[Rfam]
RNA sequence: UAAAUCCUAAAGGGGUGCUCCUGCGUGGGAGCUGAGACUUUGACUUUGCAUCGAAGGACCCUUUGAACCUGAUUCGGUUAGCACCGACGUAGGGAUUAGGAAGUCAUUUUUU
Numbered sequence: 001u002a003a004a005u006c007c008u009a010a011a012g013g014g015g016u017g018c019u020c021c022u023g024c025g026u027g028g029g030a031g032c033u034g035a036g037a038c039u040u041u042g043a044c045u046u047u048g049c050a051u052c053g054a055a056g057g058a059c060c061c062u063u064u065g066a067a068c069c070u071g072a073u074u075c076g077g078u079u080a081g082c083a084c085c086g087a088c089g090u091a092g093g094g095a096u097u098a099g100g101a102a103g104u105c106a107u108u109u110u111u112u
Stems, first nucleotide, its partner, number of pairs: 006100005011062004016056001017032005039055005068093004074087004

Rfam assigns this 112-nucleotide sequence from Bacteriovorax sp. DB6_IX to the family "TPP riboswitch aptamer (THI element)".
The organism belongs to Bacteriovorax, within Bacteria.
Rfam's curators write: Vitamin B(1) in its active form thiamin pyrophosphate (TPP) is an essential coenzyme that is synthesised by coupling of pyrimidine and thiazole moieties in bacteria.